[Rfam]
RNA sequence: CCCGCCCCUGCACUUGACCACUUCCUGUUGGCUGGUGCAUGCCAGUGGUGAGCUGAAACUGAACCCCAGCUUAGGAAACAGGGUUCUUCUUCAUGUGGAGGACUCUGUGCCAAAAGCAUGGGAACAACG
Numbered sequence: 001c002c003c004g005c006c007c008c009u010g011c012a013c014u015u016g017a018c019c020a021c022u023u024c025c026u027g028u029u030g031g032c033u034g035g036u037g038c039a040u041g042c043c044a045g046u047g048g049u050g051a052g053c054u055g056a057a058a059c060u061g062a063a064c065c066c067c068a069g070c071u072u073a074g075g076a077a078a079c080a081g082g083g084u085u086c087u088u089c090u091u092c093a094u095g096u097g098g099a100g101g102a103c104u105c106u107g108u109g110c111c112a113a114a115a116g117c118a119u120g121g122g123a124a125c126a127a128c129g
Stems, first nucleotide, its partner, number of pairs: 005048002008045003017036004022030001064122003068119001069117004074111002079107006087099003
Small nucleolar RNA SNORA65: a 129-nucleotide sequence from Cnephaeus nilssonii. Gene Ontology terms of the family: nucleolus and RNA processing. Taxonomically the source falls in Cnephaeus (Eukaryota, Chordata, Gnathostomata, Theria). The family is grouped with related families in Rfam's "SNORA65 clan". By type it is an H/ACA-box small nucleolar RNA. The family's consensus secondary structure was predicted with RNAalifold. A reference for the family is Huttenhofer et al. (2001), "RNomics: an experimental approach that identifies 201 candidates for novel, small, non-messenger RNAs in mouse", EMBO J.